[Rfam]
RNA sequence: GGUGGAGAAUUCCAAAGGGAUCGCAUUGAUCCGAUUCUCUCCCUGUCACAACAUAUUGAUUUCGAUCUUUUCUUCGUUGAUUAUUAAUCGGAUCAUGCGAUCUCUUCGGAAUUUUCCAU
Numbered sequence: 001g002g003u004g005g006a007g008a009a010u011u012c013c014a015a016a017g018g019g020a021u022c023g024c025a026u027u028g029a030u031c032c033g034a035u036u037c038u039c040u041c042c043c044u045g046u047c048a049c050a051a052c053a054u055a056u057u058g059a060u061u062u063c064g065a066u067c068u069u070u071u072c073u074u075c076g077u078u079g080a081u082u083a084u085u086a087a088u089c090g091g092a093u094c095a096u097g098c099g100a101u102c103u104c105u106u107c108g109g110a111a112u113u114u115u116c117c118a119u
Stems, first nucleotide, its partner, number of pairs: 002119005008113006015106007023098004028094005036087001
Dot-bracket structure: .(((((.((((((.(((((((.((((.(((((...(..................................................)..))))))))).))))))).)))))).)))))
The record is a 119-nucleotide RNA from Nelumbo nucifera, which matches "mir-393 microRNA precursor family" in Rfam.
The organism belongs to Nelumbo, within Eukaryota.
Gene Ontology terms of the family: miRNA-mediated post-transcriptional gene silencing and RISC complex.
On this family, see Kruszka et al., J Plant Physiol 2012: "Role of microRNAs and other sRNAs of plants in their changing environments".
A search with the family's covariance model found it, with a score of 91 bits.
Pairs were carried over by alignment from the consensus structure.